[Rfam]
RNA: MIR5225 microRNA precursor family
Organism: Cajanus cajan
RNA sequence: UUUAGGGACUUCUGUCGUAGGAGAGAUGACGCCUUCUGUUACAUGUUUGCAAUUAGCAGUAGUUGUCAUCUAUUCUCGGCUGAAGCCCCUCCACAG
Numbered sequence: 001u002u003u004a005g006g007g008a009c010u011u012c013u014g015u016c017g018u019a020g021g022a023g024a025g026a027u028g029a030c031g032c033c034u035u036c037u038g039u040u041a042c043a044u045g046u047u048u049g050c051a052a053u054u055a056g057c058a059g060u061a062g063u064u065g066u067c068a069u070c071u072a073u074u075c076u077c078g079g080c081u082g083a084a085g086c087c088c089c090u091c092c093a094c095a096g
Stems, first nucleotide, its partner, number of pairs: 005088003009085004014080004019076003024071006